[Rfam]
RNA sequence: UGGAACAUGUGCUCUUUAAGUAUUUGUCCAGUAGGUUUCUUCAAGGAGAAAGCCCAC
Numbered sequence: 001u002g003g004a005a006c007a008u009g010u011g012c013u014c015u016u017u018a019a020g021u022a023u024u025u026g027u028c029c030a031g032u033a034g035g036u037u038u039c040u041u042c043a044a045g046g047a048g049a050a051a052g053c054c055c056a057c
Stems, first nucleotide, its partner, number of pairs: 034054003037050005
A member of the RNA family "U7 small nuclear RNA" from Salvelinus namaycush, 57 nucleotides long. Rfam 15.1 lists 10,439 matches to the family in 569 species. NCBI's taxonomy places the organism under Eukaryota, Metazoa, Bilateria, Teleostomi, Salvelinus. For this family Rfam cites "3' end processing of mouse histone pre-mRNA: evidence for additional base-pairing between U7 snRNA and pre-mRNA" (Spycher et al., Nucleic Acids Res, 1994). Pairs were carried over by alignment from the consensus structure, which was predicted with PFOLD. Animal histone pre-mRNAs are spliced by a different mechanism than nuclear pre-mRNAs and self-splicing introns. This processing involves the U7 snRNP, which contains only one RNA species: U7.